[Rfam]
RNA sequence: CGAGUCCCGCCUGGGUAAUCUUGCGCCGCGAGCCCAGUAUCGAGCCUUGCGGCGCGUCUGGUAACAGGCGCGUCGAUGCGUAGGCACGAAAGCAGGCCAGGUGCAAAGGUAACGGGUGAUGCCGACCCUGAAGGUGUUGAGCCCCGAAAAUUUUGGUUGGUGAGUGCCGACGGUUUCGUCCCGCCGGUAGGCAACAAUCCGUGUCGCGCUCUGGCGAGCGGCACGGAUACUCCCCGGGGUCAGAGACCG
Numbered sequence: 001c002g003a004g005u006c007c008c009g010c011c012u013g014g015g016u017a018a019u020c021u022u023g024c025g026c027c028g029c030g031a032g033c034c035c036a037g038u039a040u041c042g043a044g045c046c047u048u049g050c051g052g053c054g055c056g057u058c059u060g061g062u063a064a065c066a067g068g069c070g071c072g073u074c075g076a077u078g079c080g081u082a083g084g085c086a087c088g089a090a091a092g093c094a095g096g097c098c099a100g101g102u103g104c105a106a107a108g109g110u111a112a113c114g115g116g117u118g119a120u121g122c123c124g125a126c127c128c129u130g131a132a133g134g135u136g137u138u139g140a141g142c143c144c145c146g147a148a149a150a151u152u153u154u155g156g157u158u159g160g161u162g163a164g165u166g167c168c169g170a171c172g173g174u175u176u177c178g179u180c181c182c183g184c185c186g187g188u189a190g191g192c193a194a195c196a197a198u199c200c201g202u203g204u205c206g207c208g209c210u211c212u213g214g215c216g217a218g219c220g221g222c223a224c225g226g227a228u229a230c231u232c233c234c235c236g237g238g239g240u241c242a243g244a245g246a247c248c249g
Base pairs, nucleotide, nucleotide: 012036013035014034015033019031020030022028024216025215026214038091040089041088044085045084046083047082048080049079050075051074052073053072054071055070056069057068058067059066060065138243139241141240142239143238144237145236146235160234162232163231164230165229166192167191168190171186172185173184174183197228198227199226200225201224202223203222204221205220206219207218
RNA: Group II catalytic intron D1-D4-6
Organism: Lamprobacter modestohalophilus